[Rfam]
RNA sequence: AAAGAAGAUGAUGAUAGAUAAGACAGGGACAUCUGCAUUCCAUUGGAGUAUGAUGAUUUGUCUGUGGGAAUAUCUCUGAUUUUUU
Numbered sequence: 001a002a003a004g005a006a007g008a009u010g011a012u013g014a015u016a017g018a019u020a021a022g023a024c025a026g027g028g029a030c031a032u033c034u035g036c037a038u039u040c041c042a043u044u045g046g047a048g049u050a051u052g053a054u055g056a057u058u059u060g061u062c063u064g065u066g067g068g069a070a071u072a073u074c075u076c077u078g079a080u081u082u083u084u085u
Base pairs, nucleotide, nucleotide: 002084003083004082005081006080
This 85-nucleotide RNA sequence from Helianthus annuus belongs to the Rfam family "Small nucleolar RNA R44/J54/Z268 family". Pairs were carried over by alignment from the consensus structure, which was predicted with PFOLD. The family's RNA type in Rfam is C/D-box small nucleolar RNA. The match comes from Rfam's covariance-model search (69 bits).